[Rfam]
RNA sequence: AUACUAUGGGAUGAACUGGUCCCAAACAUUCAAAGAUCAUCCAUUUCACUUUGUUAGCUAAUUUAUCUUAUCCUUUAGCUGAUCAUUAAAGAUGAAACAUUU
Dot-bracket structure: ....................................(((((...........((((((((...............)))))))).......))))).......
Numbered sequence: 001a002u003a004c005u006a007u008g009g010g011a012u013g014a015a016c017u018g019g020u021c022c023c024a025a026a027c028a029u030u031c032a033a034a035g036a037u038c039a040u041c042c043a044u045u046u047c048a049c050u051u052u053g054u055u056a057g058c059u060a061a062u063u064u065a066u067c068u069u070a071u072c073c074u075u076u077a078g079c080u081g082a083u084c085a086u087u088a089a090a091g092a093u094g095a096a097a098c099a100u101u102u
Stems, first nucleotide, its partner, number of pairs: 037095005053083008